[Rfam]
RNA: Y RNA
Organism: Papio anubis
RNA sequence: UGCUUGUCUGAAUGCAGUGGUGUUUAGAAUUGAUUGAUAACUACCAGUUACAGAUUUCUUUGUUCCUUCUCCCCCUCCACAGCUUCAAUUGACUAGCCAAA
Numbered sequence: 001u002g003c004u005u006g007u008c009u010g011a012a013u014g015c016a017g018u019g020g021u022g023u024u025u026a027g028a029a030u031u032g033a034u035u036g037a038u039a040a041c042u043a044c045c046a047g048u049u050a051c052a053g054a055u056u057u058c059u060u061u062g063u064u065c066c067u068u069c070u071c072c073c074c075c076u077c078c079a080c081a082g083c084u085u086c087a088a089u090u091g092a093c094u095a096g097c098c099a100a101a
Base pairs, nucleotide, nucleotide: 002097003096004095006093007092008091010090011089014086017080018079019078020077028064029063030062032060033059